[Rfam]
RNA sequence: CCAGCCUGGAUACUCUGGGAGGUCACUCUCCCCAGGCUCUGUCCAGGUGGUACAUGGGAGUGCAGGGCUCUGCCCUAUGAUAUAUAUUCCCUUUCCACAGUGUUGGAUAUGAAACUGGGCCUCUGAGUGUGUGCCUUCAGUUUCUUAGAGUCCCAUGGACCAUGACUGAGGGAACAAUCCAUGCAGGAAACAAUU
Numbered sequence: 001c002c003a004g005c006c007u008g009g010a011u012a013c014u015c016u017g018g019g020a021g022g023u024c025a026c027u028c029u030c031c032c033c034a035g036g037c038u039c040u041g042u043c044c045a046g047g048u049g050g051u052a053c054a055u056g057g058g059a060g061u062g063c064a065g066g067g068c069u070c071u072g073c074c075c076u077a078u079g080a081u082a083u084a085u086a087u088u089c090c091c092u093u094u095c096c097a098c099a100g101u102g103u104u105g106g107a108u109a110u111g112a113a114a115c116u117g118g119g120c121c122u123c124u125g126a127g128u129g130u131g132u133g134c135c136u137u138c139a140g141u142u143u144c145u146u147a148g149a150g151u152c153c154c155a156u157g158g159a160c161c162a163u164g165a166c167u168g169a170g171g172g173a174a175c176a177a178u179c180c181a182u183g184c185a186g187g188a189a190a191c192a193a194u195u
Stems, first nucleotide, its partner, number of pairs: 001106005007100001008044005014036003018029004047098004056091004060085001062083001064081001065078001134187003138183002141173006150160004
The family of this 195-nucleotide sequence from Erinaceus europaeus is "Small nucleolar RNA SNORA73 family". Gene Ontology terms of the family: RNA processing and nucleolus. U17 (SNORA73A and SNORA73B) also known as E1 belongs to the H/ACA class of small nucleolar RNAs (snoRNAs). Vertebrate U17 is intron-encoded and ranges in length from 200-230 nucleotides, longer than most snoRNAs. It is one of the most abundant snoRNAs in human cells and is essential for the cleavage of pre-rRNA within the 5' external transcribed spacer (ETS).